[Rfam]
RNA: Small nucleolar RNA SNORA73 family
RNA sequence: CCAACGUGGAUACCCUGGGAGGUCACUCUCCCCAGGCUCUGUCCAAGUGGCAUAGGGGAGCUUAGGGCUCUGCCCAUGAUGUACAGUCCCUUUCCACAACGUUGAAGAUGAAGCUGGGCCUCGUGUCUGCGCCUGCAUAUUCCUACAGCUUCCCAGAGUCCUGUGGAUAAUGAUAGGGGAGACAAACCAUGCAGGAAACAUAU
Numbered sequence: 001c002c003a004a005c006g007u008g009g010a011u012a013c014c015c016u017g018g019g020a021g022g023u024c025a026c027u028c029u030c031c032c033c034a035g036g037c038u039c040u041g042u043c044c045a046a047g048u049g050g051c052a053u054a055g056g057g058g059a060g061c062u063u064a065g066g067g068c069u070c071u072g073c074c075c076a077u078g079a080u081g082u083a084c085a086g087u088c089c090c091u092u093u094c095c096a097c098a099a100c101g102u103u104g105a106a107g108a109u110g111a112a113g114c115u116g117g118g119c120c121u122c123g124u125g126u127c128u129g130c131g132c133c134u135g136c137a138u139a140u141u142c143c144u145a146c147a148g149c150u151u152c153c154c155a156g157a158g159u160c161c162u163g164u165g166g167a168u169a170a171u172g173a174u175a176g177g178g179g180a181g182a183c184a185a186a187c188c189a190u191g192c193a194g195g196a197a198a199c200a201u202a203u
Stems, first nucleotide, its partner, number of pairs: 002104006008044005014036003018029004047097004056090004060084001063081002065077001132195007149181006158168004